Shown here is an 89-nucleotide sequence from Pseudomonas kuykendallii, a member of the family "Glycine riboswitch aptamer". Rfam links the family to the GO term glycine biosynthetic process. NCBI's taxonomy places the organism under Bacteria, Pseudomonadati, Gammaproteobacteria, Pseudomonadales, Pseudomonas. This family represents the bacterial glycine riboswitch. It scores 71 bits against the family's covariance model. The base pairs follow the family's consensus structure.

RNA sequence: CUCGCAACCACGGGAGAGACCGGUCAGAUGCCGGCGCCGAAGGAGCAACCGCCCCGGAAACUCUCAGGCAAAAGGACCGUGGGGCUCAC
Numbered sequence: 001c002u003c004g005c006a007a008c009c010a011c012g013g014g015a016g017a018g019a020c021c022g023g024u025c026a027g028a029u030g031c032c033g034g035c036g037c038c039g040a041a042g043g044a045g046c047a048a049c050c051g052c053c054c055c056g057g058a059a060a061c062u063c064u065c066a067g068g069c070a071a072a073a074g075g076a077c078c079g080u081g082g083g084g085c086u087c088a089c
Stems, first nucleotide, its partner, number of pairs: 008082006020034004036069003039065002043063003049057002